[Rfam]
RNA sequence: GAAAAAACCAGCGUCGAAUUGCGCUGGUAAAGACUACCUAUGACCGUCAAGUACCGUGCAGGGGGCGGUAAGAGCGACGCGUUGCGUCUGAGGACCGGGGGACGGUGGUAAAAACUAUCAAUUCCCUGCAACCAAUGUGACCGGAUUCUAUCAGGGUUUUAUAGAUCGUCAACACUAUACGUGGUCAAAAUUAUAACUAAUUGUAA
Numbered sequence: 001g002a003a004a005a006a007a008c009c010a011g012c013g014u015c016g017a018a019u020u021g022c023g024c025u026g027g028u029a030a031a032g033a034c035u036a037c038c039u040a041u042g043a044c045c046g047u048c049a050a051g052u053a054c055c056g057u058g059c060a061g062g063g064g065g066c067g068g069u070a071a072g073a074g075c076g077a078c079g080c081g082u083u084g085c086g087u088c089u090g091a092g093g094a095c096c097g098g099g100g101g102a103c104g105g106u107g108g109u110a111a112a113a114a115c116u117a118u119c120a121a122u123u124c125c126c127u128g129c130a131a132c133c134a135a136u137g138u139g140a141c142c143g144g145a146u147u148c149u150a151u152c153a154g155g156g157u158u159u160u161a162u163a164g165a166u167c168g169u170c171a172a173c174a175c176u177a178u179a180c181g182u183g184g185u186c187a188a189a190a191u192u193a194u195a196a197c198u199a200a201u202u203g204u205a206a
Base pairs, nucleotide, nucleotide: 008027009026010025011024012023013022014021044108045107046106047105048104052070053069054068055067056066076088077087078086079085080084136174137173138172142168143167144166147165148164149163150162
This 206-nucleotide RNA sequence from Paraburkholderia sp. LEh10 belongs to the Rfam family "Burkholderia sRNA Bp1_Cand738_SIPHT". The base pairs follow the family's consensus structure, which was predicted with RNAalifold. The organism belongs to Paraburkholderia, within Bacteria. Rfam classes the family as a small RNA.